[Rfam]
RNA sequence: AAAUCGGCCCUUUUCAGGGCCACCAAGUGUUUACUAUAGAGUUGUUU
Numbered sequence: 001a002a003a004u005c006g007g008c009c010c011u012u013u014u015c016a017g018g019g020c021c022a023c024c025a026a027g028u029g030u031u032u033a034c035u036a037u038a039g040a041g042u043u044g045u046u047u
Base pairs, nucleotide, nucleotide: 006021007020008019009018010017011016

Shown here is a 47-nucleotide sequence from Aedes aegypti, a member of the family "Histone 3' UTR stem-loop". By type it is a cis-regulatory element. It scores 37 bits against the family's covariance model.